[Rfam]
RNA sequence: AAUAUCUGAAGUAGAGAAUGUGCUGCUACGCACCGUAAGGUCAAAAGAAAUGCAAGAUUGGCACACUUGCCUGAUAUU
Numbered sequence: 001a002a003u004a005u006c007u008g009a010a011g012u013a014g015a016g017a018a019u020g021u022g023c024u025g026c027u028a029c030g031c032a033c034c035g036u037a038a039g040g041u042c043a044a045a046a047g048a049a050a051u052g053c054a055a056g057a058u059u060g061g062c063a064c065a066c067u068u069g070c071c072u073g074a075u076a077u078u
Base pairs, nucleotide, nucleotide: 001078002077003076004075005074006073008071011029012028013027014026020064021063022062023061024060031047032041033040034039052070053069054068055067056066
Dot-bracket structure: ((((((.(..((((.....[[[[[.)))).((((....))).....)....(((((...]]]]].)))))).))))))